[Rfam]
The family of this 194-nucleotide RNA sequence from Tetragenococcus muriaticus is "Enterococcus sRNA 2410".
RNA sequence: UUAGCUAUUUUAGAUAGGUUUGUAUUCAUAAAACAUGGAUACAAACACGACAAGCGUUUGUAUCUAUGAUGGCUAAAGGAAUUUGAAGUGACAAAAUAGGCCGCAUAGAUCAAUAAAAAUCUAUAGCGAGCCGUAAAAAUUUCUGAUGAUAUUACACUUUAUAAGGGUGUUCGCUAUAGUUUUUGACUUAGCGA
Numbered sequence: 001u002u003a004g005c006u007a008u009u010u011u012a013g014a015u016a017g018g019u020u021u022g023u024a025u026u027c028a029u030a031a032a033a034c035a036u037g038g039a040u041a042c043a044a045a046c047a048c049g050a051c052a053a054g055c056g057u058u059u060g061u062a063u064c065u066a067u068g069a070u071g072g073c074u075a076a077a078g079g080a081a082u083u084u085g086a087a088g089u090g091a092c093a094a095a096a097u098a099g100g101c102c103g104c105a106u107a108g109a110u111c112a113a114u115a116a117a118a119a120u121c122u123a124u125a126g127c128g129a130g131c132c133g134u135a136a137a138a139a140u141u142u143c144u145g146a147u148g149a150u151a152u153u154a155c156a157c158u159u160u161a162u163a164a165g166g167g168u169g170u171u172c173g174c175u176a177u178a179g180u181u182u183u184u185g186a187c188u189u190a191g192c193g194a
Stems, first nucleotide, its partner, number of pairs: 001076007011066006018046012051060003081147003085143005093134001100127002105124002108121003149170003152165002
Dot-bracket structure: (((((((...((((((.((((((((((((.....))))))))))))....(((....)))))))))...)))))))....(((.(((((...(......((...((.(((........))).)).))......)....))))).))).(((((..........))..)))........................
On this family, see Sinel et al., Sci Rep 2017: "Small RNAs in vancomycin-resistant Enterococcus faecium involved in daptomycin response and resistance".